[Rfam]
RNA sequence: GUGCAUUCUUUUAAACCCCCCUGUAGUUUUGGAUAGCUGCUGGGACAAGGAAGAAUGCAAGAGCAACAUUCACCUAGAUGUAUCCAAAGUGAAGAGUCUGUAACAGUGCCUCUUUACUAUUUCACAUCUAGGACAUUACU
Dot-bracket structure: ..((((...(((......(((.(.(((........))).).)))...)))....))))...((.........((((((.........(((((((.(....(....)...).)))))))........))))))......))
Rfam assigns this 140-nucleotide RNA from Acipenser ruthenus to the family "Small nucleolar RNA SNORA14". Rfam describes the family as follows. ACA14 is a member of the H/ACA class of snoRNA that guide the sites of modification of uridines to pseudouridines. Rfam 15.1 lists 848 matches to the family in 633 species. The match comes from Rfam's covariance-model search (53 bits).